Annotation
The family of this 340-nucleotide RNA from Oryctolagus cuniculus is "7SK RNA". On this family, see Blencowe, Curr Biol 2002: "Transcription: surprising role for an elusive small nuclear RNA". By type it is a non-coding RNA gene. Rfam's curators write: 7SK was discovered as an abundant small nuclear RNA in the mid-70s but a possible function has only recently been suggested. Pairs were carried over by alignment from the consensus structure, which is taken from published work.
[Rfam]
RNA sequence: GGAUGUGAGGGCGAUCUGGCUGCGACAUCUGUCACCCCAUUGAUCGCCAGGGUUGAUUCGGCUGAUCUGGCUGGCUAGGCGGGUGUCCCCUUCCUCCCUCACCGCUCCAUGUGCGUCCCUCCCGAAGCUGCGCGCUCGGUCGAAGAGGACGACCAUCCCCGCUAGAGGAGGACCGGUCUUCGGUCAAGGGUAUACGAGUAGCUGCGCUCCCCUGCUAGAACCUCCAAACAAGCUCUCAAAAGAUCACACAGCCAGGAGAAAAUAAUUCAGCCAUGAUUUAACUCACUUCAAUUCAAGCAUCAGAAGAAAAGGAAAAGAAAGAAUAUCCCCUGCAUCUAUU
Numbered sequence: 001g002g003a004u005g006u007g008a009g010g011g012c013g014a015u016c017u018g019g020c021u022g023c024g025a026c027a028u029c030u031g032u033c034a035c036c037c038c039a040u041u042g043a044u045c046g047c048c049a050g051g052g053u054u055g056a057u058u059c060g061g062c063u064g065a066u067c068u069g070g071c072u073g074g075c076u077a078g079g080c081g082g083g084u085g086u087c088c089c090c091u092u093c094c095u096c097c098c099u100c101a102c103c104g105c106u107c108c109a110u111g112u113g114c115g116u117c118c119c120u121c122c123c124g125a126a127g128c129u130g131c132g133c134g135c136u137c138g139g140u141c142g143a144a145g146a147g148g149a150c151g152a153c154c155a156u157c158c159c160c161g162c163u164a165g166a167g168g169a170g171g172a173c174c175g176g177u178c179u180u181c182g183g184u185c186a187a188g189g190g191u192a193u194a195c196g197a198g199u200a201g202c203u204g205c206g207c208u209c210c211c212c213u214g215c216u217a218g219a220a221c222c223u224c225c226a227a228a229c230a231a232g233c234u235c236u237c238a239a240a241a242g243a244u245c246a247c248a249c250a251g252c253c254a255g256g257a258g259a260a261a262a263u264a265a266u267u268c269a270g271c272c273a274u275g276a277u278u279u280a281a282c283u284c285a286c287u288u289c290a291a292u293u294c295a296a297g298c299a300u301c302a303g304a305a306g307a308a309a310a311g312g313a314a315a316a317g318a319a320a321g322a323a324u325a326u327c328c329c330c331u332g333c334a335u336c337u338a339u340u
Base pairs, nucleotide, nucleotide: 001108002107003106005102006101007100008099009098010097011096013093014092018090019089024087025086026085027084028083029082030081031080032079033078035074036073037070038069039068042067043066044065045064046062047061048060116171117170118168119167120166121165122139123138124137125136127135128134141161142160147158148157149156201271202270203269208264214263222258223257224256225255291340293338295335297333298332